[Rfam]
RNA: Group II catalytic intron D1-D4-7
RNA sequence: CCACCUGUGUCAUCAGGUGAAUCUACGAGCAUGAAUAAAGAGCUGCUCGGACAAUGUAACGAAGGUAGUGCUGCUACCGGGGAGUAGAUCGUGAGAAAUACUCUCUCCUGAAAGCCUUAUUCGGGUGAGUGC
Number, nucleotide and partner (000 for none) at each position: 001c000002c019003a018004c017005c016006u015007g014008u000009g000010u000011c000012a000013u000014c007015a006016g005017g004018u003019g002020a000021a000022u000023c000024u000025a000026c000027g048028a047029g046030c045031a044032u039033g000034a000035a000036u000037a000038a000039a032040g000041a000042g000043c000044u031045g030046c029047u028048c027049g000050g000051a000052c000053a000054a000055u000056g000057u000058a000059a000060c000061g000062a000063a000064g078065g077066u076067a075068g074069u000070g000071c000072u000073g000074c068075u067076a066077c065078c064079g000080g105081g104082g103083a102084g000085u000086a000087g000088a000089u096090c095091g000092u000093g000094a000095g090096a089097a000098a000099u000100a000101c000102u083103c082104u081105c080106u000107c125108c124109u123110g122111a121112a120113a000114g000115c000116c000117u000118u000119a000120u112121u111122c110123g109124g108125g107126u000127g000128a000129g000130u000131g000132c000